[Rfam]
RNA sequence: AUAGUUCUUCGGGGUAGGGUGUAAUUCCCAACCGGCGGUAUAGUCCGCGACCUGCUUAUCUAUUGAUAGGUGGCUGAUUUGGUGAGAUUCCAAAACCGACAGUAAAGUCUGGAUGAGAGAAGAAUGCA
Numbered sequence: 001a002u003a004g005u006u007c008u009u010c011g012g013g014g015u016a017g018g019g020u021g022u023a024a025u026u027c028c029c030a031a032c033c034g035g036c037g038g039u040a041u042a043g044u045c046c047g048c049g050a051c052c053u054g055c056u057u058a059u060c061u062a063u064u065g066a067u068a069g070g071u072g073g074c075u076g077a078u079u080u081g082g083u084g085a086g087a088u089u090c091c092a093a094a095a096c097c098g099a100c101a102g103u104a105a106a107g108u109c110u111g112g113a114u115g116a117g118a119g120a121a122g123a124a125u126g127c128a
Stems, first nucleotide, its partner, number of pairs: 004125007017029003031108002033098002035048004043096002052073002078094005100111003

Shown here is a 128-nucleotide sequence from Butyrivibrio sp. Su6, a member of the family "FMN riboswitch aptamer (RFN element)". Lineage of the source: Bacteria > Bacillota > Clostridia > Lachnospiraceae > Butyrivibrio. The family's consensus secondary structure is taken from published work.